[Rfam]
RNA: Bacteroidales small SRP
RNA sequence: UGCGCUCGGGUGAGCCCUGUACGACUAGCUCCCUCUAAUCCCCCAGGUCAGGAAUGGAGCAAGGGCGUGAGGUUGUAGCAGUGCGAUGCAGUAAGCUUGCCCUUUU
Dot-bracket structure: .......((((((((.(((((((((.......................................................)).)).)))))...))))))))....